[Rfam]
RNA sequence: GCUUGGCUAAUAUCAGCUGGUAAUUCUGAGAUAACCCCGUGGCCAUAACAUGCUCAGGAUGCCGGCCGAUAUUGACCAAU
Numbered sequence: 001g002c003u004u005g006g007c008u009a010a011u012a013u014c015a016g017c018u019g020g021u022a023a024u025u026c027u028g029a030g031a032u033a034a035c036c037c038c039g040u041g042g043c044c045a046u047a048a049c050a051u052g053c054u055c056a057g058g059a060u061g062c063c064g065g066c067c068g069a070u071a072u073u074g075a076c077c078a079a080u
Stems, first nucleotide, its partner, number of pairs: 003079004008074007016066001020063001022060001025058006
mir-216 microRNA precursor family: an 80-nucleotide sequence from Capitella teleta. Rfam links the family to the GO terms miRNA-mediated post-transcriptional gene silencing and RISC complex. On this family, see Shao et al., Gene 2008: "Identification of novel chicken microRNAs and analysis of their genomic organization". Rfam's curators put it in the seed alignment. Clan: mir-216 clan.